This 154-nucleotide sequence from Gemmobacter fulvus belongs to the Rfam family "Ruegeria cis2 sRNA". The family's consensus secondary structure was predicted with RNAfold. Taxonomically the source falls in Gemmobacter (Bacteria, Pseudomonadati, Rhodobacterales, Paracoccaceae). The match comes from Rfam's covariance-model search (84 bits). For this family Rfam cites "Experimental Identification of Small Non-Coding RNAs in the Model Marine Bacterium Ruegeria pomeroyi DSS-3" (Rivers et al., Front Microbiol, 2016).
[Rfam]
RNA sequence: CGAGCUGUAAUGCGGAUGAUAAUUCAGGAAGAUAUAACCGCGGCCCUGAUCAAUGGUGUGGAACAGCGGGUUCCAGUCAAACCAGGUCAGGAUAUAGCCGGGCAUCAUAUUGGCCACGAACAUCUUGCCCGAGGCAAUCAUGUUGGCGCGCAUG
Numbered sequence: 001c002g003a004g005c006u007g008u009a010a011u012g013c014g015g016a017u018g019a020u021a022a023u024u025c026a027g028g029a030a031g032a033u034a035u036a037a038c039c040g041c042g043g044c045c046c047u048g049a050u051c052a053a054u055g056g057u058g059u060g061g062a063a064c065a066g067c068g069g070g071u072u073c074c075a076g077u078c079a080a081a082c083c084a085g086g087u088c089a090g091g092a093u094a095u096a097g098c099c100g101g102g103c104a105u106c107a108u109a110u111u112g113g114c115c116a117c118g119a120a121c122a123u124c125u126u127g128c129c130c131g132a133g134g135c136a137a138u139c140a141u142g143u144u145g146g147c148g149c150g151c152a153u154g
Stems, first nucleotide, its partner, number of pairs: 002035001004033001006032001008030001011027001014024002037057004042051002064154002066151003070082003086147005092141002098134002101130002103127002107123002110119003